[Rfam]
RNA sequence: GGCUGUGCAUUAUUACUUUUGGUACGCGCUGUGUCACAUCAAACUCGUACCGUGAGUAAUAAUGCGCAG
Dot-bracket structure: .......((((((((((..(((((((.(...............).)))))))..)))))))))).....
The family of this 69-nucleotide sequence from Xenopus tropicalis is "mir-126 microRNA precursor family".
Lineage of the source: Eukaryota > Eumetazoa > Anura > Pipoidea > Silurana.
Gene Ontology terms of the family: RISC complex and miRNA-mediated post-transcriptional gene silencing.
The sequence is in the family's curated seed alignment.